[Rfam]
RNA sequence: GACAAUUGAUUGCCGAAGCCGCUUUUGGAAAGCGGCGCGGGGGAACCAAAAUUCUCGGGGCGAAACGUCUUUUCGAUGUAGAACACUUCCGUUGUUCCAGCCCGUCAGCUAACCUCGCAGGCGUAAUGGAAGACAAG
Numbered sequence: 001g002a003c004a005a006u007u008g009a010u011u012g013c014c015g016a017a018g019c020c021g022c023u024u025u026u027g028g029a030a031a032g033c034g035g036c037g038c039g040g041g042g043g044a045a046c047c048a049a050a051a052u053u054c055u056c057g058g059g060g061c062g063a064a065a066c067g068u069c070u071u072u073u074c075g076a077u078g079u080a081g082a083a084c085a086c087u088u089c090c091g092u093u094g095u096u097c098c099a100g101c102c103c104g105u106c107a108g109c110u111a112a113c114c115u116c117g118c119a120g121g122c123g124u125a126a127u128g129g130a131a132g133a134c135a136a137g
Stems, first nucleotide, its partner, number of pairs: 011123004018036008037118006047057001058103003066078004081097004
RNA: c-di-AMP riboswitch aptamer (ydaO/yuaA leader)